[Rfam]
RNA sequence: AGCUUGUCAAUUAUGUUUCUUAUUAAAAGUGUCUGAACAUAUGAACUUGAUAGUGAUUCCAAUGCAUUACUGAGAAGCU
Numbered sequence: 001a002g003c004u005u006g007u008c009a010a011u012u013a014u015g016u017u018u019c020u021u022a023u024u025a026a027a028a029g030u031g032u033c034u035g036a037a038c039a040u041a042u043g044a045a046c047u048u049g050a051u052a053g054u055g056a057u058u059c060c061a062a063u064g065c066a067u068u069a070c071u072g073a074g075a076a077g078c079u
Stems, first nucleotide, its partner, number of pairs: 002078004008074001
Small nucleolar RNA SNORD72: a 79-nucleotide RNA from Sakesphorus luctuosus. For this family Rfam cites "RNomics: an experimental approach that identifies 201 candidates for novel, small, non-messenger RNAs in mouse" (Huttenhofer et al., EMBO J, 2001). snoRNA HBII-240 belongs to the CD family of snoRNAs. It is the human orthologue of the mouse MBII-240 and is predicted to guide 2'O-ribose methylation of the large 28S rRNA at residue U4590. Rfam links the family to the GO terms nucleolus and RNA processing. It is annotated as a C/D-box small nucleolar RNA.